[Rfam]
RNA sequence: AAGGUCGAUGAAGAAGAUGUUCUCUCUCACAUCCUUACUGGACUUGACGAGGAGUUCGACCCCAUGGUCUCGGCCAUGUGCUCCAGGGUCGAACCGGUCACGGUCCCGGAGCUGUAUUCACAUCUGCUGAGCUUCGAGA
Numbered sequence: 001a002a003g004g005u006c007g008a009u010g011a012a013g014a015a016g017a018u019g020u021u022c023u024c025u026c027u028c029a030c031a032u033c034c035u036u037a038c039u040g041g042a043c044u045u046g047a048c049g050a051g052g053a054g055u056u057c058g059a060c061c062c063c064a065u066g067g068u069c070u071c072g073g074c075c076a077u078g079u080g081c082u083c084c085a086g087g088g089u090c091g092a093a094c095c096g097g098u099c100a101c102g103g104u105c106c107c108g109g110a111g112c113u114g115u116a117u118u119c120a121c122a123u124c125u126g127c128u129g130a131g132c133u134u135c136g137a138g139a
Base pairs, nucleotide, nucleotide: 005137006136007135008134086107087106088105090103
RNA: Small nucleolar RNA Z247